Record summary: The family of this 296-nucleotide sequence from Tropilaelaps mercedesae is "Metazoan signal recognition particle RNA". Lineage of the source: Eukaryota > Eumetazoa > Panarthropoda > Acari > Tropilaelaps. About the family: The signal recognition particle (SRP) is a universally conserved ribonucleoprotein. It is involved in the co-translational targeting of proteins to membranes. The eukaryotic SRP consists of a 300-nucleotide 7S RNA and six proteins: SRPs 72, 68, 54, 19, 14, and 9. Archaeal SRP consists of a 7S RNA and homologues of the eukaryotic SRP19 and SRP54 proteins. Eukaryotic and archaeal 7S RNAs have very similar secondary structures, as represented by this family. Eight helical elements fold into the Alu and S domains, separated by a long linker region. The Alu domain is thought to mediate the peptide chain elongation retardation function of the SRP. The universally conserved helix which interacts with the SRP54 M domain mediates signal sequence recognition. In eukaryotes and archaea, the SRP19-helix 6 complex is thought to be involved in SRP assembly and stabilises helix 8 for SRP54 binding. The Signal Recognition Particle Database (SRPDB) provides compilations of SRP components, with phylogenetic data and structural illustrations. Many sequences below the threshold for this family are clearly closely related, but are most likely to be SRP RNA derived pseudogenes. The human genome in particular is known to contain a large amount of SRP RNA related sequence, including Alu repeats. While the threshold of this family is set high so as to minimise the number of hits to such regions, it is likely that some remain. The family's consensus secondary structure is taken from published work.

RNA sequence: GCCGGAGCCGUGGCGUGCUCUGUUAUCCUGCUUCUGGGAGGCUGGUCAAGGGGACGGUGUCAGGCCGGGGGCCCUGCGGGUGGAGCCGCGUAUGUUGACCGGGUGUCCGCACUAAGGUUGGCGUCGAUAUGCCCGAUUCUGGGGAGCCGGAUGUCGGACAGGUCGCUUGAGGAGACUCGCAAAGGCUCAGGGUGGAAACACAGCAGGCAAAAGAGUCCGCGUGAGCCAGUAGUAGGGUCGCACCCGUGAAUGCGCGUCUGCUCGUAGCCCGGCCGAAACGUCGGACCCAAGACUCU
Numbered sequence: 001g002c003c004g005g006a007g008c009c010g011u012g013g014c015g016u017g018c019u020c021u022g023u024u025a026u027c028c029u030g031c032u033u034c035u036g037g038g039a040g041g042c043u044g045g046u047c048a049a050g051g052g053g054a055c056g057g058u059g060u061c062a063g064g065c066c067g068g069g070g071g072c073c074c075u076g077c078g079g080g081u082g083g084a085g086c087c088g089c090g091u092a093u094g095u096u097g098a099c100c101g102g103g104u105g106u107c108c109g110c111a112c113u114a115a116g117g118u119u120g121g122c123g124u125c126g127a128u129a130u131g132c133c134c135g136a137u138u139c140u141g142g143g144g145a146g147c148c149g150g151a152u153g154u155c156g157g158a159c160a161g162g163u164c165g166c167u168u169g170a171g172g173a174g175a176c177u178c179g180c181a182a183a184g185g186c187u188c189a190g191g192g193u194g195g196a197a198a199c200a201c202a203g204c205a206g207g208c209a210a211a212a213g214a215g216u217c218c219g220c221g222u223g224a225g226c227c228a229g230u231a232g233u234a235g236g237g238u239c240g241c242a243c244c245c246g247u248g249a250a251u252g253c254g255c256g257u258c259u260g261c262u263c264g265u266a267g268c269c270c271g272g273c274c275g276a277a278a279c280g281u282c283g284g285a286c287c288c289a290a291g292a293c294u295c296u
Stems, first nucleotide, its partner, number of pairs: 001042003004021005026039003044294004050288003055283006061275001063274007074267008083259001085257002089254005095248001100246007107236002111233004116227004121222004125165004130160002133157005138151005166172002174217005185208003192201003